[Rfam]
RNA: FMN riboswitch aptamer (RFN element)
RNA sequence: CACUAUUCUCAGGGCGGGGUGAGAUUCCCCACCGGUGGUAAUUUGUAAAACGUUACAACAGCCCACGAGCGCUUUAUAUUGAAAAAUAUAAAGGUCAGCAGAUCCAGUGAAAACCUGGAGCCGACGGUUAAAGUCCGGAUAAAAGAGAAUGAAU
Numbered sequence: 001c002a003c004u005a006u007u008c009u010c011a012g013g014g015c016g017g018g019g020u021g022a023g024a025u026u027c028c029c030c031a032c033c034g035g036u037g038g039u040a041a042u043u044u045g046u047a048a049a050a051c052g053u054u055a056c057a058a059c060a061g062c063c064c065a066c067g068a069g070c071g072c073u074u075u076a077u078a079u080u081g082a083a084a085a086a087u088a089u090a091a092a093g094g095u096c097a098g099c100a101g102a103u104c105c106a107g108u109g110a111a112a113a114c115c116u117g118g119a120g121c122c123g124a125c126g127g128u129u130a131a132a133g134u135c136c137g138g139a140u141a142a143a144a145g146a147g148a149a150u151g152a153a154u
Stems, first nucleotide, its partner, number of pairs: 004151007017029003031134002033123002035066004061121002069099002103119005125137003